The family of this 117-nucleotide RNA sequence from Cucumis melo is "mir-166 microRNA precursor family".
The family's consensus secondary structure was predicted with PFOLD.
NCBI's taxonomy places the organism under Eukaryota, Magnoliopsida, Gunneridae, rosids, Cucumis.
RNA sequence: GUUGAGGGGAAUGAAGCCUGGUCCGAAAUCAUUCAAAAGUAAGAGUUGUAAUUUGAAGGGUUUAUCAAAAAUUCAAAAGAAAUGAAAGAUCUCGCACCAGACAACAUUCCCCUCAAC
Numbered sequence: 001g002u003u004g005a006g007g008g009g010a011a012u013g014a015a016g017c018c019u020g021g022u023c024c025g026a027a028a029u030c031a032u033u034c035a036a037a038a039g040u041a042a043g044a045g046u047u048g049u050a051a052u053u054u055g056a057a058g059g060g061u062u063u064a065u066c067a068a069a070a071a072u073u074c075a076a077a078a079g080a081a082a083u084g085a086a087a088g089a090u091c092u093c094g095c096a097c098c099a100g101a102c103a104a105c106a107u108u109c110c111c112c113u114c115a116a117c
Base pairs, nucleotide, nucleotide: 001117002116003115004114005113006112007111008110009109010108011107012106013105016102018100019099020098021097024094025093026092
Dot-bracket structure: (((((((((((((..(.((((..(((.................................................................)))..)))).)..)))))))))))))